[Rfam]
Nucleotides: 160
Base pairs, nucleotide, nucleotide: 012119013118014117015116016048017047018046019045020044021043023042025040026039027038049088050087051086056083058081060079061078062077063076064075091113092112093110094109095108097106098105134158135157136156137155139154142151144149
Number, partner (000 for none) and nucleotide at each position: 001000a002000u003000a004000g005000u006000u007000g008000c009000c010000u011000g012119g013118c014117a015116a016048g017047g018046a019045a020044g021043a022000u023042a024000g025040c026039a027038u028000g029000a030000u031000u032000a033000c034000a035000a036000a037000g038027g039026u040025g041000g042023u043021u044020u045019u046018u047017c048016c049088a050087g051086g052000g053000c054000a055000a056083g057000u058081c059000u060079u061078a062077u063076c064075c065000c066000c067000u068000g069000g070000a071000c072000u073000c074000u075064g076063g077062a078061u079060g080000u081058g082000c083056u084000g085000a086051c087050c088049u089000g090000c091113a092112a093110u094109u095108u096000a097106c098105c099000a100000a101000a102000u103000g104000u105098g106097g107000g108095a109094a110093a111000c112092u113091u114000c115000c116015u117014u118013g119012c120000a121000u122000g123000a124000u125000u126000u127000g128000u129000g130000g131000u132000u133000g134158g135157g136156g137155g138000a139154a140000c141000u142151g143000g144149g145000u146000u147000c148000a149144u150000g151142c152000u153000u154139u155137c156136c157135c158134c159000u160000g
The family of this 160-nucleotide RNA sequence from Ursus maritimus is "U1 spliceosomal RNA".
About the family: U1 is a small nuclear RNA (snRNA) component of the spliceosome (involved in pre-mRNA splicing).
A search with the family's covariance model found it, with a score of 86 bits.